A member of the RNA family "mir-191 microRNA precursor family" from Gallus gallus, 87 nucleotides long. A reference for the family is Kim et al. (2004), "Identification of many microRNAs that copurify with polyribosomes in mammalian neurons", Proc Natl Acad Sci U S A. Gene Ontology terms of the family: miRNA-mediated post-transcriptional gene silencing and RISC complex.

[Rfam]
RNA sequence: AGCGCCGGCACGGGCAACGGAAUCCCAAAAGCAGCUGUCCCCGCAGCGCCCAGCUGCCCUGGGAUUUCGUUACCCGCGCCUCCGCCU
Numbered sequence: 001a002g003c004g005c006c007g008g009c010a011c012g013g014g015c016a017a018c019g020g021a022a023u024c025c026c027a028a029a030a031g032c033a034g035c036u037g038u039c040c041c042c043g044c045a046g047c048g049c050c051c052a053g054c055u056g057c058c059c060u061g062g063g064a065u066u067u068c069g070u071u072a073c074c075c076g077c078g079c080c081u082c083c084g085c086c087u
Stems, first nucleotide, its partner, number of pairs: 009078001011076003017070009028060001031057007